mir-9/mir-79 microRNA precursor family: a 76-nucleotide RNA sequence from Cimex lectularius. Taxonomically the source falls in Cimex (Eukaryota, Opisthokonta, Pterygota, Cimicidae).
RNA sequence: UUGUUUCUUUCUUUGGUUAUCUAGCUGUAUGAGUAUGACGAGCAUCAUAAAGCUAGGUUACCGAAGUUAAUAAUAA
Numbered sequence: 001u002u003g004u005u006u007c008u009u010u011c012u013u014u015g016g017u018u019a020u021c022u023a024g025c026u027g028u029a030u031g032a033g034u035a036u037g038a039c040g041a042g043c044a045u046c047a048u049a050a051a052g053c054u055a056g057g058u059u060a061c062c063g064a065a066g067u068u069a070a071u072a073a074u075a076a
Stems, first nucleotide, its partner, number of pairs: 001076005008069001011066007019058008028049005